RNA sequence: AUCCUGCCGCCGCCCGAAUCCGACGAAUCGACAGCCAUGGCAGGAGCGGGGGACCCAGGUAAGUCGCCGGGCCGGAGCGCCGUACGUCGUCCUACGUCGUACGCCGUGCCGGAACGGCUCGGGGUGAAGCCGCGCCCUUCGGGGCGCGGCCGGGCACCUCCCCGCCCGAACCCGACAGCUCACCUCGCAGGCGACGGAGAGGAAGU
Numbered sequence: 001a002u003c004c005u006g007c008c009g010c011c012g013c014c015c016g017a018a019u020c021c022g023a024c025g026a027a028u029c030g031a032c033a034g035c036c037a038u039g040g041c042a043g044g045a046g047c048g049g050g051g052g053a054c055c056c057a058g059g060u061a062a063g064u065c066g067c068c069g070g071g072c073c074g075g076a077g078c079g080c081c082g083u084a085c086g087u088c089g090u091c092c093u094a095c096g097u098c099g100u101a102c103g104c105c106g107u108g109c110c111g112g113a114a115c116g117g118c119u120c121g122g123g124g125u126g127a128a129g130c131c132g133c134g135c136c137c138u139u140c141g142g143g144g145c146g147c148g149g150c151c152g153g154g155c156a157c158c159u160c161c162c163c164g165c166c167c168g169a170a171c172c173c174g175a176c177a178g179c180u181c182a183c184c185u186c187g188c189a190g191g192c193g194a195c196g197g198a199g200a201g202g203a204a205g206u
Stems, first nucleotide, its partner, number of pairs: 011193004019045003046188006056121001122173003130149006152167004